[Rfam]
RNA: Purine riboswitch aptamer
Organism: Clostridium sp. CAG:265
RNA sequence: UAUAAGAGGGCUAUGAUUAUUCAUAUAAAUCCCUAAUAUGGUGGGAUGUUUCUACUGGAAACCUAAAAUUUCUAAGCUAUGGGUAAAUUUAAUUGUAUA
Number, nucleotide and partner (000 for none) at each position: 001u000002a000003u000004a000005a000006g000007a000008g000009g000010g000011c000012u000013a000014u000015g000016a000017u000018u085019a084020u083021u082022c081023a080024u079025a078026u000027a000028a000029a047030u046031c045032c044033c043034u000035a000036a000037u000038a000039u000040g000041g000042u000043g033044g032045g031046a030047u029048g000049u000050u000051u000052c000053u000054a000055c000056u075057g073058g072059a071060a070061a069062c000063c000064u000065a000066a000067a000068a000069u061070u060071u059072c058073u057074a000075a056076g000077c000078u025079a024080u023081g022082g021083g020084u019085a018086a000087a000088u000089u000090u000091a000092a000093u000094u000095g000096u000097a000098u000099a000